[Rfam]
Notes
Shown here is a 75-nucleotide RNA from Streptomyces sp. GS7, a member of the family "ASpks TB sRNA". By type it is an antisense RNA. A search with the family's covariance model found it, with a score of 82 bits.

RNA sequence: CUUCACCGAACCCAGCAGCAGCGGCCGCUCGGCGUCCCGCCCCUGACCGUAGGUGGCCAGCAACGCCUGCGCCUC
Numbered sequence: 001c002u003u004c005a006c007c008g009a010a011c012c013c014a015g016c017a018g019c020a021g022c023g024g025c026c027g028c029u030c031g032g033c034g035u036c037c038c039g040c041c042c043c044u045g046a047c048c049g050u051a052g053g054u055g056g057c058c059a060g061c062a063a064c065g066c067c068u069g070c071g072c073c074u075c
Stems, first nucleotide, its partner, number of pairs: 015025002032070002038065002043060003047056003
The organism belongs to Streptomyces, within Bacteria.